[Rfam]
RNA sequence: ACCCCCUACAAAGUUGUGCCUUUGGUUCCCUGUCUUUGGAUACAUAAGAAUUGGAGGCAAAGAAAUGUGGAUUUGGAGAAGUCUGGGGGGCAUUCCCAUGGGCUUAAGAUCAAUCAUCCCACAUAG
Numbered sequence: 001a002c003c004c005c006c007u008a009c010a011a012a013g014u015u016g017u018g019c020c021u022u023u024g025g026u027u028c029c030c031u032g033u034c035u036u037u038g039g040a041u042a043c044a045u046a047a048g049a050a051u052u053g054g055a056g057g058c059a060a061a062g063a064a065a066u067g068u069g070g071a072u073u074u075g076g077a078g079a080a081g082u083c084u085g086g087g088g089g090g091c092a093u094u095c096c097c098a099u100g101g102g103c104u105u106a107a108g109a110u111c112a113a114u115c116a117u118c119c120c121a122c123a124u125a126g
Base pairs, nucleotide, nucleotide: 002057003056005054006053015044016043017042018041020039021038024030025029069119070118071117073116089104090103091102093100
The family of this 126-nucleotide sequence from Sciurus carolinensis is "Small nucleolar RNA SNORA38". The match comes from Rfam's covariance-model search (110 bits). Rfam links the family to the GO terms Cajal body, nucleolus and RNA processing. NCBI's taxonomy places the organism under Eukaryota, Gnathostomata, Euteleostomi, Dipnotetrapodomorpha, Sciurus. Rfam classes the family as an H/ACA-box small nucleolar RNA. Pairs were carried over by alignment from the consensus structure, which was predicted with RNAfold. From the family's description: ACA38 is a member of the H/ACA class of snoRNA that guide the sites of modification of uridines to pseudouridines.